[Rfam]
RNA sequence: AUGCCUUAAACUAAUGAGUAAGGAAAAUAAUGAUCCUGGGUAGCUCCAGGUUCCACAAUUUUAUAUUGUGAUAAAUUUAUGCAUGGGUACAGGUUGCCCUUGGUGUGGCCCACCUACUUCGUGGGCUGCCCAUGAUGUGGCGACCUACCCA
Numbered sequence: 001a002u003g004c005c006u007u008a009a010a011c012u013a014a015u016g017a018g019u020a021a022g023g024a025a026a027a028u029a030a031u032g033a034u035c036c037u038g039g040g041u042a043g044c045u046c047c048a049g050g051u052u053c054c055a056c057a058a059u060u061u062u063a064u065a066u067u068g069u070g071a072u073a074a075a076u077u078u079a080u081g082c083a084u085g086g087g088u089a090c091a092g093g094u095u096g097c098c099c100u101u102g103g104u105g106u107g108g109c110c111c112a113c114c115u116a117c118u119u120c121g122u123g124g125g126c127u128g129c130c131c132a133u134g135a136u137g138u139g140g141c142g143a144c145c146u147a148c149c150c151a
Base pairs, nucleotide, nucleotide: 004023005022006021007020008019032053033052035050036049037048038047039046054070055069056068057067058066084151085150086149087148088147091146092145093144094143095142096141097140100135101134103131105129106128107127109125110124111123112122113121